[Rfam]
RNA sequence: ACCGGGCUUGAUAACUCUUGCCUAUAAUUCAAGUGAGGGUAUAAGUGGGUUGGAUUCUGACUUGGUUCAGUUGGUUGGGUUAGAUGGUGAACCACCCGCCUUGCCCAUUCCAAGUUGUGGGUGGGUUUGGGUUCCUUGAGCGAAGGCUUGGGUAACUCGAACCUUAGAUGAGGGACAAUGUGUUAGGUUGGUUUCACAGAGUUACGAAAACUCGAACCUUACAACAGUGGAAGGAUUACAGGUCAGAGUCCAUCGAACUCAUAUAACUUGCUGAACUGGCUCAACUGGACACCCAUUUUU
Number, nucleotide and partner (000 for none) at each position: 001a040002c039003c038004g023005g022006g021007c020008u000009u000010g017011a016012u000013a000014a000015c000016u011017c010018u000019u000020g007021c006022c005023u004024a000025u000026a000027a000028u037029u036030c035031a000032a000033g000034u000035g030036a029037g028038g003039g002040u001041a000042u000043a298044a297045g296046u295047g294048g293049g292050u291051u000052g290053g000054a000055u287056u000057c000058u283059g282060a000061c279062u278063u000064g276065g000066u000067u274068c273069a272070g271071u270072u000073g268074g267075u266076u265077g260078g259079g258080u257081u256082a000083g254084a253085u000086g000087g000088u000089g250090a249091a000092c248093c000094a000095c000096c246097c000098g244099c000100c242101u241102u240103g239104c000105c234106c233107a000108u232109u231110c230111c229112a228113a000114g225115u224116u223117g222118u221119g220120g219121g218122u000123g000124g163125g162126u161127u160128u159129g158130g157131g156132u155133u154134c000135c152136u151137u150138g149139a148140g147141c146142g000143a000144a000145g000146g141147c140148u139149u138150g137151g136152g135153u000154a133155a132156c131157u130158c129159g128160a127161a126162c125163c124164u000165u000166a000167g000168a000169u000170g000171a000172g213173g212174g211175a000176c000177a000178a000179u208180g000181u206182g205183u204184u000185a000186g000187g000188u199189u198190g197191g000192u000193u000194u000195c000196a000197c190198a189199g188200a000201g000202u000203u000204a183205c182206g181207a000208a179209a000210a000211c174212u173213c172214g000215a000216a000217c000218c121219u120220u119221a118222c117223a116224a115225c114226a000227g000228u112229g111230g110231a109232a108233g106234g105235a000236u000237u000238a000239c103240a102241g101242g100243u000244c098245a000246g096247a000248g092249u090250c089251c000252a000253u084254c083255g000256a081257a080258c079259u078260c077261a000262u000263a000264u000265a076266a075267c074268u073269u000270g071271c070272u069273g068274a067275a000276c064277u000278g062279g061280c000281u000282c059283a058284a000285c000286u000287g055288g000289a000290c052291a050292c049293c048294c047295a046296u045297u044298u043299u000300u000

Shown here is a 300-nucleotide sequence from Cynara cardunculus, a member of the family "Plant signal recognition particle RNA". It is annotated as a non-coding RNA gene. A reference for the family is Wild et al. (2002), "Towards the structure of the mammalian signal recognition particle", Curr Opin Struct Biol. NCBI's taxonomy places the organism under Eukaryota, Euphyllophyta, Spermatophyta, asterids, Cynara cardunculus subsp. cardunculus. The family's consensus secondary structure is taken from published work.